[Rfam]
RNA sequence: GUUUAUUACCCAGUUACCAAGGUACGCUGGAGUUUCUGCCUUUCGGAAGAAAGUGUAGAGCUAAUAAAUAAUUUUGGAUAUGCACUGCUGGGGUUUCCGGCGGUGCGAA
Numbered sequence: 001g002u003u004u005a006u007u008a009c010c011c012a013g014u015u016a017c018c019a020a021g022g023u024a025c026g027c028u029g030g031a032g033u034u035u036c037u038g039c040c041u042u043u044c045g046g047a048a049g050a051a052a053g054u055g056u057a058g059a060g061c062u063a064a065u066a067a068a069u070a071a072u073u074u075u076g077g078a079u080a081u082g083c084a085c086u087g088c089u090g091g092g093g094u095u096u097c098c099g100g101c102g103g104u105g106c107g108a109a
Stems, first nucleotide, its partner, number of pairs: 008033001009030002013027002015024003036058004040053005086105005092098002